[Rfam]
RNA sequence: GGAGAAGCAAAGUGAUGAGCAUUACUGGCUGGAGCCCCAGAGGCACGUGUGUGCAUGUGUGUGCAUGUGUGUUUCUCUGUUCGGGUCUGUGCAUGCACAUGUAUGUCUGGGAGUGUGAAUGUGUGUGGCUGGCUGUAGGGACCUAGUUAUGUGCCUUCUGUGGGGCCAUGACAGUCAAACUGAUAAGAUCUGAUUGCUUC
Numbered sequence: 001g002g003a004g005a006a007g008c009a010a011a012g013u014g015a016u017g018a019g020c021a022u023u024a025c026u027g028g029c030u031g032g033a034g035c036c037c038c039a040g041a042g043g044c045a046c047g048u049g050u051g052u053g054c055a056u057g058u059g060u061g062u063g064c065a066u067g068u069g070u071g072u073u074u075c076u077c078u079g080u081u082c083g084g085g086u087c088u089g090u091g092c093a094u095g096c097a098c099a100u101g102u103a104u105g106u107c108u109g110g111g112a113g114u115g116u117g118a119a120u121g122u123g124u125g126u127g128g129c130u131g132g133c134u135g136u137a138g139g140g141a142c143c144u145a146g147u148u149a150u151g152u153g154c155c156u157u158c159u160g161u162g163g164g165g166c167c168a169u170g171a172c173a174g175u176c177a178a179a180c181u182g183a184u185a186a187g188a189u190c191u192g193a194u195u196g197c198u199u200c
Stems, first nucleotide, its partner, number of pairs: 004200007014190003026177006036111004041104001043102003047098008059087001063082001065080003113126004129146004134141001148170004153166004

Overview:
This 200-nucleotide RNA from Phyllostomus discolor belongs to the Rfam family "Small nucleolar RNA ZL1". By type it is a C/D-box small nucleolar RNA. A search with the family's covariance model found it, with a score of 182 bits. About the family: Host gene TRRAP. Predicted target U2@U47. The family has 5 seed sequences and 300 matches in Rfam 15.1. Rfam links the family to the GO terms RNA processing and nucleolus. The organism belongs to Phyllostomus, within Eukaryota. A reference for the family is Kishore et al. (2013), "Insights into snoRNA biogenesis and processing from PAR-CLIP of snoRNA core proteins and small RNA sequencing", Genome Biol.